[Rfam]
RNA: transfer-messenger RNA
RNA sequence: GGGGUCGUUAUGGAUUCGACAGGUAUGGGUCGAGCCAUGACUGCAUUUCGUAGGUUACGGCUACGUAAAAACGUUCAGUUUAUUAUAACUGCAAAAAAUAAUAACAAUUCUUACGCUUUAGCUGCCUAAUAGUAGCUUGACGUAGAUCCGCCUAGUCUCGUCCAUGGGCUAGAUACGGGUCCUAAAUGAAGUGGACUUGCGCUUAAGUACUGGCCUGGGUGCUUAAGAAGAGGAUUUACAGACUAGCGUUUUAAUGAAGCCCCGACAUACGGCGUCUUAUUUCGCGAAAUUUAAGUAGUAUGAAUAUGAAUGUAGAUGUCAUGGUGGCGACAUGCUUGGACGCGGGUUCGACUCCCGCCGACUCCAUUU
Numbered sequence: 001g002g003g004g005u006c007g008u009u010a011u012g013g014a015u016u017c018g019a020c021a022g023g024u025a026u027g028g029g030u031c032g033a034g035c036c037a038u039g040a041c042u043g044c045a046u047u048u049c050g051u052a053g054g055u056u057a058c059g060g061c062u063a064c065g066u067a068a069a070a071a072c073g074u075u076c077a078g079u080u081u082a083u084u085a086u087a088a089c090u091g092c093a094a095a096a097a098a099u100a101a102u103a104a105c106a107a108u109u110c111u112u113a114c115g116c117u118u119u120a121g122c123u124g125c126c127u128a129a130u131a132g133u134a135g136c137u138u139g140a141c142g143u144a145g146a147u148c149c150g151c152c153u154a155g156u157c158u159c160g161u162c163c164a165u166g167g168g169c170u171a172g173a174u175a176c177g178g179g180u181c182c183u184a185a186a187u188g189a190a191g192u193g194g195a196c197u198u199g200c201g202c203u204u205a206a207g208u209a210c211u212g213g214c215c216u217g218g219g220u221g222c223u224u225a226a227g228a229a230g231a232g233g234a235u236u237u238a239c240a241g242a243c244u245a246g247c248g249u250u251u252u253a254a255u256g257a258a259g260c261c262c263c264g265a266c267a268u269a270c271g272g273c274g275u276c277u278u279a280u281u282u283c284g285c286g287a288a289a290u291u292u293a294a295g296u297a298g299u300a301u302g303a304a305u306a307u308g309a310a311u312g313u314a315g316a317u318g319u320c321a322u323g324g325u326g327g328c329g330a331c332a333u334g335c336u337u338g339g340a341c342g343c344g345g346g347u348u349c350g351a352c353u354c355c356c357g358c359c360g361a362c363u364c365c366a367u368u369u
Base pairs, nucleotide, nucleotide: 001365002364003363004362005361006360007359020338021337022336023335024334025333026332027331034325035324036323037322038321039320040319041318044312045311046310047309048308049065050064051063052062053061057074058073059072118140119139120138121137123135145181146180147179148178149177152172153171154170155169156168157167158166160196161195162194163193164192165191202227203226204225205224206223207222208221209220210219213243215241216240217239246285247284248283252279253278254277259273260272261271266302267301270298342358343357344356345355346354